[Rfam]
The record is an 80-nucleotide sequence from Arachis hypogaea, which matches "Small nucleolar RNA snoR53Y" in Rfam. The literature on the family includes a 2001 paper in RNA by Brown et al., "Multiple snoRNA gene clusters from Arabidopsis". Gene Ontology terms of the family: nucleolus and RNA processing. Pairs were carried over by alignment from the consensus structure, which was predicted with WAR. Lineage of the source: Eukaryota > Streptophytina > Fabaceae > Papilionoideae > Arachis. Rfam classes the family as a C/D-box small nucleolar RNA.
RNA sequence: GUUCCCAAUGAUGCUGUUAUUCUUUACCAUGCUAAUGCUGAAUAACAUUUGAUUAUUCCUUUUAUUAUACUGAGGGAACU
Numbered sequence: 001g002u003u004c005c006c007a008a009u010g011a012u013g014c015u016g017u018u019a020u021u022c023u024u025u026a027c028c029a030u031g032c033u034a035a036u037g038c039u040g041a042a043u044a045a046c047a048u049u050u051g052a053u054u055a056u057u058c059c060u061u062u063u064a065u066u067a068u069a070c071u072g073a074g075g076g077a078a079c080u
Stems, first nucleotide, its partner, number of pairs: 001079005